[Rfam]
RNA sequence: GCCAUUUUUAGUUAGAAUCUGCGGGGACAGCAAAUAUUUGGCCCGGCGUACAGGAAUUUGAUAUUAAGGCUUACGGUAGUGGAUUAGUUUGCUACAUACAACAAGGCUCUAUAGCUAUCCAUCACUUCCGAAGUAAAUCAAGUGGGUAUAAGUUGGAAAGAAUAUGUU
Numbered sequence: 001g002c003c004a005u006u007u008u009u010a011g012u013u014a015g016a017a018u019c020u021g022c023g024g025g026g027a028c029a030g031c032a033a034a035u036a037u038u039u040g041g042c043c044c045g046g047c048g049u050a051c052a053g054g055a056a057u058u059u060g061a062u063a064u065u066a067a068g069g070c071u072u073a074c075g076g077u078a079g080u081g082g083a084u085u086a087g088u089u090u091g092c093u094a095c096a097u098a099c100a101a102c103a104a105g106g107c108u109c110u111a112u113a114g115c116u117a118u119c120c121a122u123c124a125c126u127u128c129c130g131a132a133g134u135a136a137a138u139c140a141a142g143u144g145g146g147u148a149u150a151a152g153u154u155g156g157a158a159a160g161a162a163u164a165u166g167u168u
Base pairs, nucleotide, nucleotide: 002015004013006011023168024167026165031160035155036154038152039151041147042146043145044144045143057142058141059140060139061138062137069134070133071132074130075129076128078126079125080124081109082108084106087102088101089100